[Rfam]
RNA sequence: UCCCGUGAAGGGCAAUCUAAGUGCGCGACGUCCUGUCGCAACGAUUGCAUGACCUACCUCCUGUAGG
Numbered sequence: 001u002c003c004c005g006u007g008a009a010g011g012g013c014a015a016u017c018u019a020a021g022u023g024c025g026c027g028a029c030g031u032c033c034u035g036u037c038g039c040a041a042c043g044a045u046u047g048c049a050u051g052a053c054c055u056a057c058c059u060c061c062u063g064u065a066g067g
Base pairs, nucleotide, nucleotide: 012048013047014046015045016044017043025039026038027037028036029035053067054066055065056064057063

Shown here is a 67-nucleotide RNA sequence from Sporosarcina luteola, a member of the family "Bacillaceae-1 RNA".
The family's consensus secondary structure is taken from published work.
The organism belongs to Sporosarcina, within Bacteria.